This 172-nucleotide RNA sequence from Desmospora activa belongs to the Rfam family "Lysine riboswitch aptamer". It scores 103 bits against the family's covariance model. Rfam describes the family as follows. Riboswitches are metabolite binding domains within certain messenger RNAs that serve as precision sensors for their corresponding targets. Allosteric rearrangement of mRNA structure is mediated by ligand binding, and this results in modulation of gene expression. Lineage of the source: Bacteria > Bacillota > Caryophanales > Desmospora > Desmospora activa. The family's consensus secondary structure is taken from published work.
[Rfam]
RNA sequence: AUGUGAAGUAGAGGCGCGAUGGUCAUCAGUACCGUUUCCGAGGCGCGGGAGCCACAGAAGAAACGGGAAAGGGAUUGUCGCCGAAGCGAACUUCCCCCGCUGGAAGAGAGCUGGGCCCGUUACCGAACAGGGACGGAACUGUCACGAACUUUCGUGGAGCACUAACUCACAA
Numbered sequence: 001a002u003g004u005g006a007a008g009u010a011g012a013g014g015c016g017c018g019a020u021g022g023u024c025a026u027c028a029g030u031a032c033c034g035u036u037u038c039c040g041a042g043g044c045g046c047g048g049g050a051g052c053c054a055c056a057g058a059a060g061a062a063a064c065g066g067g068a069a070a071g072g073g074a075u076u077g078u079c080g081c082c083g084a085a086g087c088g089a090a091c092u093u094c095c096c097c098c099g100c101u102g103g104a105a106g107a108g109a110g111c112u113g114g115g116c117c118c119g120u121u122a123c124c125g126a127a128c129a130g131g132g133a134c135g136g137a138a139c140u141g142u143c144a145c146g147a148a149c150u151u152u153c154g155u156g157g158a159g160c161a162c163u164a165a166c167u168c169a170c171a172a
Base pairs, nucleotide, nucleotide: 006167009164010163011162016081017080018079019078020077021076022075023074024073032066033065034064035063036062037061038060085112086111087110091106092105093104094103095102113140114139117136118135119134120133121132123130142157143156144155145154146153147152